The record is a 217-nucleotide RNA from Sorghum bicolor, which matches "MIR6217 microRNA precursor family" in Rfam. Taxonomically the source falls in Sorghum (Eukaryota, Embryophyta, Euphyllophyta, Panicoideae). Its family is annotated with RISC complex and miRNA-mediated post-transcriptional gene silencing in the Gene Ontology. Rfam 15.1 lists 2,266 matches to the family in 13 species.

RNA sequence: AGUAUACAAAAUAACUUAUUUUGUAGCCACUUUAAGUUACGAUAAUUACGUACAAGAUUAUAGUAACUUCUUACUAAGUGGUUUACUAUAACAUUACGGUAAAUAUACCAUGUAUUAUAGUCACCUAACUAUCGUAAAUAUAUAUACAUAUUAUCGUAAAUUAGUAUAUAAAAUUAUCGUAAAUGGAGAUGACUACAGAAUCACAUAUUUUGUAGCU
Numbered sequence: 001a002g003u004a005u006a007c008a009a010a011a012u013a014a015c016u017u018a019u020u021u022u023g024u025a026g027c028c029a030c031u032u033u034a035a036g037u038u039a040c041g042a043u044a045a046u047u048a049c050g051u052a053c054a055a056g057a058u059u060a061u062a063g064u065a066a067c068u069u070c071u072u073a074c075u076a077a078g079u080g081g082u083u084u085a086c087u088a089u090a091a092c093a094u095u096a097c098g099g100u101a102a103a104u105a106u107a108c109c110a111u112g113u114a115u116u117a118u119a120g121u122c123a124c125c126u127a128a129c130u131a132u133c134g135u136a137a138a139u140a141u142a143u144a145u146a147c148a149u150a151u152u153a154u155c156g157u158a159a160a161u162u163a164g165u166a167u168a169u170a171a172a173a174u175u176a177u178c179g180u181a182a183a184u185g186g187a188g189a190u191g192a193c194u195a196c197a198g199a200a201u202c203a204c205a206u207a208u209u210u211u212g213u214a215g216c217u
Stems, first nucleotide, its partner, number of pairs: 001217003005214009016203001018201009028191002031188003037182011051158003056155003060151003063147003071137004078132006085121007093113002098108001